RNA sequence: CAAACGGCUUUUUUCAAAGCCACUAAAGGUAUGCAAUUGUUGAUAU
Numbered sequence: 001c002a003a004a005c006g007g008c009u010u011u012u013u014u015c016a017a018a019g020c021c022a023c024u025a026a027a028g029g030u031a032u033g034c035a036a037u038u039g040u041u042g043a044u045a046u
Stems, first nucleotide, its partner, number of pairs: 006021006